[Rfam]
RNA sequence: GAGGUGUGCUCAGAGAAAGGGGUCUGGAGAAUGGCUCCUCUGUCUGUGACACACUGGAUAGGAGUCUGAGGUCACAGUGAGAAGGGGCACAAAAGGUAUGACCUUUUCAUGAGCCAAUCCCUACAUCU
Numbered sequence: 001g002a003g004g005u006g007u008g009c010u011c012a013g014a015g016a017a018a019g020g021g022g023u024c025u026g027g028a029g030a031a032u033g034g035c036u037c038c039u040c041u042g043u044c045u046g047u048g049a050c051a052c053a054c055u056g057g058a059u060a061g062g063a064g065u066c067u068g069a070g071g072u073c074a075c076a077g078u079g080a081g082a083a084g085g086g087g088c089a090c091a092a093a094a095g096g097u098a099u100g101a102c103c104u105u106u107u108c109a110u111g112a113g114c115c116a117a118u119c120c121c122u123a124c125a126u127c128u
Base pairs, nucleotide, nucleotide: 003055004054005053006052007051008050013045015043017041019039020038021037022035023034024033070121071120077114078113082110084104085103086102088100089099091097

Rfam assigns this 128-nucleotide RNA from Chinchilla lanigera to the family "Small nucleolar RNA SNORA11". Its family is annotated with nucleolus and RNA processing in the Gene Ontology. The literature on the family includes a 2005 paper in Nucleic Acids Res by Gu et al., "A novel experimental approach for systematic identification of box H/ACA snoRNAs from eukaryotes". U107 (SNORA11) is a member of the H/ACA class of snoRNAs that guide the sites of modification of uridines to pseudouridines. This snoRNA was identified by RT-PCR from blood cells and its expression confirmed by Northern blot analysis. By type it is an H/ACA-box small nucleolar RNA.